[Rfam]
RNA sequence: GUGCCAUGAUGUAACUAUCAACACAUCAUUCUGAAGAAUUAUUGUGUGGAGAACUUCUGUAACUGAGCACC
Numbered sequence: 001g002u003g004c005c006a007u008g009a010u011g012u013a014a015c016u017a018u019c020a021a022c023a024c025a026u027c028a029u030u031c032u033g034a035a036g037a038a039u040u041a042u043u044g045u046g047u048g049g050a051g052a053a054c055u056u057c058u059g060u061a062a063c064u065g066a067g068c069a070c071c
Base pairs, nucleotide, nucleotide: 001070002069003068004067
The record is a 71-nucleotide sequence from Podiceps cristatus, which matches "Small nucleolar RNA SNORD63" in Rfam.
The literature on the family includes a 2002 paper in Mol Cell Biol by Galardi et al., "Purified box C/D snoRNPs are able to reproduce site-specific 2'-O-methylation of target RNA in vitro".
Rfam's curators write: snoRNA U63 is found in both humans and mice.